[Rfam]
RNA sequence: CCCGCAUAUAUGAUGAUGUAUUACGGAUGUAAAAAGAGUCGAACAGACUCGCACGUCCGAGAGCGCAUAAACCUCGUGUGGAUGUCUCCGUUGCCUUCCUUCUGACUCUUGUGU
Numbered sequence: 001c002c003c004g005c006a007u008a009u010a011u012g013a014u015g016a017u018g019u020a021u022u023a024c025g026g027a028u029g030u031a032a033a034a035a036g037a038g039u040c041g042a043a044c045a046g047a048c049u050c051g052c053a054c055g056u057c058c059g060a061g062a063g064c065g066c067a068u069a070a071a072c073c074u075c076g077u078g079u080g081g082a083u084g085u086c087u088c089c090g091u092u093g094c095c096u097u098c099c100u101u102c103u104g105a106c107u108c109u110u111g112u113g114u
Stems, first nucleotide, its partner, number of pairs: 003113003024090004

Background:
The family of this 114-nucleotide sequence from Phlebopus sp. FC_14 is "Small nucleolar RNA Z13/snr52". It is annotated as a C/D-box small nucleolar RNA. Rfam 15.1 lists 1,203 matches to the family in 866 species. Its family is annotated with nucleolus and RNA processing in the Gene Ontology. The organism belongs to Phlebopus, within Eukaryota.